[Rfam]
RNA sequence: ACGUCAUCAAGAGCGGUGGAGGGAAAGGCCCUGUGAAGCCGCGGCAACCCUUGCGAGAGCAAAACGGUGCCAAUUCCUGCAGGAUUAUCCUGGGAGAUGAUGG
Number, nucleotide and partner (000 for none) at each position: 001a000002c102003g101004u100005c099006a098007u097008c096009a000010a000011g000012a000013g042014c041015g040016g039017u038018g000019g000020a000021g031022g030023g029024a000025a000026a078027g077028g076029c023030c022031c021032u000033g000034u000035g000036a000037a000038g017039c016040c015041g014042c013043g071044g070045c069046a068047a000048c067049c066050c000051u062052u061053g060054c000055g000056a000057g000058a000059g000060c053061a052062a051063a000064a000065c000066g049067g048068u046069g045070c044071c043072a000073a000074u000075u095076c028077c027078u026079g000080c092081a091082g090083g089084a088085u000086u000087a000088u084089c083090c082091u081092g080093g000094g000095a075096g008097a007098u006099g005100a004101u003102g002103g000
About this RNA:
Shown here is a 103-nucleotide sequence from Fretibacterium sp. OH1220_COT-178, a member of the family "SAM riboswitch aptamer (S box leader)". Pairs were carried over by alignment from the consensus structure, which is taken from published work. It scores 91 bits against the family's covariance model.